[Rfam]
RNA: Glycine riboswitch aptamer
Organism: Acuticoccus mangrovi
RNA sequence: GCAGCGUGCGCGGGAGAGACCGCUUAGGCGGCGCCGAAGGAGCAACGGCCCGGAAACUCUCAGGCAAAAGGACCGCGCACGGGCG
Numbered sequence: 001g002c003a004g005c006g007u008g009c010g011c012g013g014g015a016g017a018g019a020c021c022g023c024u025u026a027g028g029c030g031g032c033g034c035c036g037a038a039g040g041a042g043c044a045a046c047g048g049c050c051c052g053g054a055a056a057c058u059c060u061c062a063g064g065c066a067a068a069a070g071g072a073c074c075g076c077g078c079a080c081g082g083g084c085g
Stems, first nucleotide, its partner, number of pairs: 006080008020031004033065003036061002040059003046052002